[Rfam]
RNA sequence: GUCCGUACCGCGCCGCGCGAGAACCGGCGGCGCAACCGGUCGGACCUCGGGGUGAAGCCACCACGGUGGCCGGGCAAGCCUUCCCGCCCGAACCCGACAGCUAACCUCGCAGGCGUGCCGGAGGGAUCUC
Numbered sequence: 001g002u003c004c005g006u007a008c009c010g011c012g013c014c015g016c017g018c019g020a021g022a023a024c025c026g027g028c029g030g031c032g033c034a035a036c037c038g039g040u041c042g043g044a045c046c047u048c049g050g051g052g053u054g055a056a057g058c059c060a061c062c063a064c065g066g067u068g069g070c071c072g073g074g075c076a077a078g079c080c081u082u083c084c085c086g087c088c089c090g091a092a093c094c095c096g097a098c099a100g101c102u103a104a105c106c107u108c109g110c111a112g113g114c115g116u117g118c119c120g121g122a123g124g125g126a127u128c129u130c
Stems, first nucleotide, its partner, number of pairs: 011115004018026002027110004032105001037049002050095003058069004072089004

A member of the RNA family "c-di-AMP riboswitch aptamer (ydaO/yuaA leader)" from Actinoplanes regularis, 130 nucleotides long. From the family's description: This family represents a conserved RNA structure found upstream of the ydaO and yuaA genes in Bacillus subtilis and related genes in other bacteria. Taxonomically the source falls in Actinoplanes (Bacteria, Bacillati, Actinomycetes, Micromonosporales).